[Rfam]
RNA sequence: UCUUCAUUUUCCACACUCUCUCAUCGGUCAGUGAAGUGAGAGAGUGUGUGAAAUGAUGAGA
Numbered sequence: 001u002c003u004u005c006a007u008u009u010u011c012c013a014c015a016c017u018c019u020c021u022c023a024u025c026g027g028u029c030a031g032u033g034a035a036g037u038g039a040g041a042g043a044g045u046g047u048g049u050g051a052a053a054u055g056a057u058g059a060g061a
Stems, first nucleotide, its partner, number of pairs: 001059002004056004010050001012048006019041004
Background:
Shown here is a 61-nucleotide sequence from Pristionchus pacificus, a member of the family "mir-8364 microRNA precursor family". Lineage of the source: Eukaryota > Opisthokonta > Bilateria > Chromadorea > Pristionchus. The match comes from Rfam's covariance-model search (72 bits). Pairs were carried over by alignment from the consensus structure, which was predicted with RNAalifold. Gene Ontology terms of the family: RISC complex and miRNA-mediated post-transcriptional gene silencing. The family has 13 seed sequences and 3,320 matches in Rfam 15.1.